[Rfam]
RNA sequence: UGCGCAUGGGCCUGACUCCUUGCUCUGCCCGUGAGGUUGCACAAGGGUGAGCAAAGUUUCAGGUGUGUUCGCGA
Numbered sequence: 001u002g003c004g005c006a007u008g009g010g011c012c013u014g015a016c017u018c019c020u021u022g023c024u025c026u027g028c029c030c031g032u033g034a035g036g037u038u039g040c041a042c043a044a045g046g047g048u049g050a051g052c053a054a055a056g057u058u059u060c061a062g063g064u065g066u067g068u069u070c071g072c073g074a
Stems, first nucleotide, its partner, number of pairs: 002072003006068002010064006018056001020054002023051003028047003
Rfam assigns this 74-nucleotide RNA from Cephus cinctus to the family "mir-87 microRNA precursor family".
Rfam links the family to the GO terms RISC complex and miRNA-mediated post-transcriptional gene silencing.
Rfam 15.1 lists 420 matches to the family in 285 species.
The organism belongs to Cephus, within Eukaryota.
On this family, see Ruby et al., Genome Res 2007: "Evolution, biogenesis, expression, and target predictions of a substantially expanded set of Drosophila microRNAs".